[Rfam]
Nucleotides: 141
Stems, first nucleotide, its partner, number of pairs: 020052005026047003034042002085117003088113003092109005132141002
Number, partner (000 for none) and nucleotide at each position: 001000a002000u003000u004000c005000u006000u007000g008000c009000g010000c011000a012000g013000u014000g015000g016000c017000a018000a019000u020052a021051u022050c023049g024048u025000a026047g027046c028045u029000u030000a031000u032000g033000a034042g035041g036000u037000u038000a039000a040000u041035c042034c043000g044000a045028g046027g047026c048024g049023c050022g051021a052020u053000c054000a055000u056000u057000g058000c059000u060000g061000g062000u063000u064000g065000a066000a067000a068000a069000c070000u071000u072000u073000a074000c075000c076000c077000a078000a079000u080000a081000c082000a083000c084000u085117g086116c087115c088113u089112g090111g091000a092109u093108g094107a095106c096105u097000u098000g099000a100000a101000a102000a103000a104000u105096a106095g107094u108093c109092a110000g111090c112089u113088g114000u115087g116086g117085c118000a119000a120000u121000u122000u123000u124000u125000g126000a127000u128000g129000g130000c131000u132141u133140c134000u135000g136000g137000c138000g139000a140133g141132a
The family of this 141-nucleotide RNA sequence from Ameiurus melas is "U4 spliceosomal RNA". It scores 105 bits against the family's covariance model. It is annotated as a spliceosomal small nuclear RNA. For this family Rfam cites "The uRNA database" (Zwieb, Nucleic Acids Res, 1997). Pairs were carried over by alignment from the consensus structure, which is taken from published work. Gene Ontology terms of the family: spliceosomal tri-snRNP complex assembly and U4 snRNP.